Background: A member of the RNA family "Alphaproteobacterial sRNA BjrC1505" from Alsobacter soli, 145 nucleotides long. The match comes from Rfam's covariance-model search (93 bits). It is annotated as a small RNA. Taxonomically the source falls in Alsobacter (Bacteria, Pseudomonadati, Hyphomicrobiales, Alsobacteraceae). For this family Rfam cites "Small RNAs of the Bradyrhizobium/Rhodopseudomonas lineage and their analysis" (Madhugiri et al., RNA Biol, 2012).
RNA sequence: AGCUUGCUUUAACCGGUCAUUAAGCUUUCGGGAGUAUGAAUCCGACAUCCAGAUUCCUUCUGGAUGUCGAGUGGCUCCUGUCCACUCUGUUUGACGCCUCCCUGUUUACCCACUUCGAAAGCCGCCUGCGGGCGGCUUUUUUUUG
Numbered sequence: 001a002g003c004u005u006g007c008u009u010u011a012a013c014c015g016g017u018c019a020u021u022a023a024g025c026u027u028u029c030g031g032g033a034g035u036a037u038g039a040a041u042c043c044g045a046c047a048u049c050c051a052g053a054u055u056c057c058u059u060c061u062g063g064a065u066g067u068c069g070a071g072u073g074g075c076u077c078c079u080g081u082c083c084a085c086u087c088u089g090u091u092u093g094a095c096g097c098c099u100c101c102c103u104g105u106u107u108a109c110c111c112a113c114u115u116c117g118a119a120a121g122c123c124g125c126c127u128g129c130g131g132g133c134g135g136c137u138u139u140u141u142u143u144u145g
Stems, first nucleotide, its partner, number of pairs: 002042001005015002021036002025032002047065007069087006093106004117140010